[Rfam]
RNA sequence: CAAUUGGAUUAGUGAUAAUUCGAUGAAUCGUGAGAAGUCAGCAGAAGCCAUAGUAGUUUCCUUUCGGAAAUGAAGGGC
Number, nucleotide and partner (000 for none) at each position: 001c025002a024003a000004u023005u022006g021007g020008a019009u018010u017011a016012g000013u000014g000015a000016u011017a010018a009019u008020u007021c006022g005023a004024u002025g001026a000027a000028u000029c000030g000031u000032g000033a000034g000035a000036a000037g000038u045039c044040a000041g000042c000043a000044g039045a038046a000047g078048c077049c076050a000051u000052a000053g000054u000055a000056g071057u070058u069059u068060c067061c066062u000063u000064u000065c000066g061067g060068a059069a058070a057071u056072g000073a000074a000075g000076g049077g048078c047

Shown here is a 78-nucleotide sequence from Sporosarcina limicola, a member of the family "Group II catalytic intron D1-D4-1". Group II introns are found in rRNA, tRNA and mRNA of organelles in fungi, plants and protists, and also in mRNA in bacteria. Rfam links the family to the GO term Group II intron splicing. Pairs were carried over by alignment from the consensus structure.